RNA: 6S / SsrS RNA
Organism: Bordetella sp. 02P26C-1
RNA sequence: UUGUCCCUGCAGUGCUCGUGACUUGGCCAUACAUUCUCUGAACCUAUGUCUUACGGCAUAUCGGUUGCGUGAAUGGUGAGCGGGCGUGAUGGUCUUGCAGUUUCGAGACUGACCCGAAGCUCAACGGAUCGCGACCACCUUGAACCUCAGGGUUCGAGAUGCCGGCCUAGACGGCACACGCGGGGCAUCU
Dot-bracket structure: ....((((((.((((.(((...............(((.((((((..................(((.(((....((.(((((....((........................)).....))))).))...))).)))..............)))))))))...........)))))))..)))))).....